[Rfam]
RNA sequence: CAUAGUAGCAGCGUUAGUCGGGUUAGACCCCCGACGACCUUAUGAGUAAGGGUUCCUCAGCAAUGCUGAUCAGCUGAGGGUUAGCCGAUCCUAAGUCUCACCGUAAUUCGAAUGAGACAAUAGGGAAACUGGUUAAUAUUCCAGUGCUAACACCAUUCAAAGUCGACGCUUCAGGAAACAUCAAGCCGGGCCUUCGCCCGGUCGAACCGUCAAAAUCCGUGGAGGCCGUAAUGGCAGGAAGCGGAUGAACGGCGGGAUAGCGAAAGUUGGUGGUACCCGGAGCCCGUGAAAAGACGAGUGUGUUAAUCGUACCGAGAUCCGACACAGGUACUCUGGCGGCGAAAGCCAAGGUCUGU
Dot-bracket structure: ................((((((.......))))))((((....((((..((...((((((...((.....)).))))))......(((.((...((((((.((.....))..))))))....))...(((((........)))))..(((((((.......(((...(((((.((...(((((.(((((........)))))....((((.....(((((....(((.....))).....)))))......)))).....(....).)))))...)).))))).........)))..).)))))).)))..)).....((......)).))))((((.......)))).))))...
Numbered sequence: 001c002a003u004a005g006u007a008g009c010a011g012c013g014u015u016a017g018u019c020g021g022g023u024u025a026g027a028c029c030c031c032c033g034a035c036g037a038c039c040u041u042a043u044g045a046g047u048a049a050g051g052g053u054u055c056c057u058c059a060g061c062a063a064u065g066c067u068g069a070u071c072a073g074c075u076g077a078g079g080g081u082u083a084g085c086c087g088a089u090c091c092u093a094a095g096u097c098u099c100a101c102c103g104u105a106a107u108u109c110g111a112a113u114g115a116g117a118c119a120a121u122a123g124g125g126a127a128a129c130u131g132g133u134u135a136a137u138a139u140u141c142c143a144g145u146g147c148u149a150a151c152a153c154c155a156u157u158c159a160a161a162g163u164c165g166a167c168g169c170u171u172c173a174g175g176a177a178a179c180a181u182c183a184a185g186c187c188g189g190g191c192c193u194u195c196g197c198c199c200g201g202u203c204g205a206a207c208c209g210u211c212a213a214a215a216u217c218c219g220u221g222g223a224g225g226c227c228g229u230a231a232u233g234g235c236a237g238g239a240a241g242c243g244g245a246u247g248a249a250c251g252g253c254g255g256g257a258u259a260g261c262g263a264a265a266g267u268u269g270g271u272g273g274u275a276c277c278c279g280g281a282g283c284c285c286g287u288g289a290a291a292a293g294a295c296g297a298g299u300g301u302g303u304u305a306a307u308c309g310u311a312c313c314g315a316g317a318u319c320c321g322a323c324a325c326a327g328g329u330a331c332u333c334u335g336g337c338g339g340c341g342a343a344a345g346c347c348a349a350g351g352u353c354u355g356u
Stems, first nucleotide, its partner, number of pairs: 017035006036353004044333004050313002055079006064072002086309003090124002095118006102110002128145005148305006154298001162295003168283005174277002179272005185202005207255004216245005225235003261266001319328002334348004
Background: Shown here is a 356-nucleotide part of an RNA from Haladaptatus paucihalophilus, a member of the family "Archaeal large subunit ribosomal RNA". For this family Rfam cites "Crystal structure of the ribosome at 5.5 A resolution" (Yusupov et al., Science, 2001). The organism belongs to Haladaptatus paucihalophilus, within Archaea. Its family is annotated with ribosome and structural constituent of ribosome in the Gene Ontology.